[Rfam]
Shown here is a 186-nucleotide RNA from Clostridium sp. M62/1, a member of the family "Group II catalytic intron D1-D4-3".
The base pairs follow the family's consensus structure.
It is one of the family's seed sequences.
Its family is annotated with Group II intron splicing in the Gene Ontology.
NCBI's taxonomy places the organism under Bacteria, Bacillati, Bacillota, Clostridia, Clostridium.
RNA sequence: GUCAUCGCGAGGUGGGGUCUGAAGGAAGCCGGAGGCAAAACACUGGCCUGUAAAAGUUGUACCCACAGGGCAUGAUACCCGGAUAGGCUGUGAAGCGUGGAUGAGGUUACCAAACAAACUAAAGUCCAAUAACUGCACGGAACGCCAGCAGUAGACGGGGCAGGUAUAAGUGGGAAAGAGCGUGUG
Number, nucleotide and partner (000 for none) at each position: 001g000002u015003c014004a013005u012006c011007g000008c000009g000010a000011g006012g005013u004014g003015g002016g000017g000018u000019c000020u000021g000022a000023a000024g000025g000026a000027a000028g000029c000030c184031g183032g000033a000034g000035g000036c178037a000038a000039a000040a000041c172042a171043c170044u169045g000046g165047c164048c163049u162050g161051u000052a000053a000054a000055a000056g000057u000058u000059g000060u000061a000062c000063c000064c000065a000066c000067a000068g000069g000070g000071c000072a000073u000074g000075a000076u000077a000078c160079c159080c158081g000082g156083a000084u000085a000086g000087g152088c151089u150090g000091u148092g000093a000094a000095g145096c144097g143098u142099g127100g126101a125102u124103g000104a000105g120106g119107u118108u117109a000110c000111c000112a000113a000114a000115c000116a000117a108118a107119c106120u105121a000122a000123a000124g102125u101126c100127c099128a000129a000130u000131a000132a000133c000134u000135g000136c000137a000138c000139g000140g000141a000142a098143c097144g096145c095146c000147a000148g091149c000150a089151g088152u087153a000154g000155a000156c082157g000158g080159g079160g078161c050162a049163g048164g047165u046166a000167u000168a000169a044170g043171u042172g041173g000174g000175a000176a000177a000178g036179a000180g000181c000182g000183u031184g030185u000186g000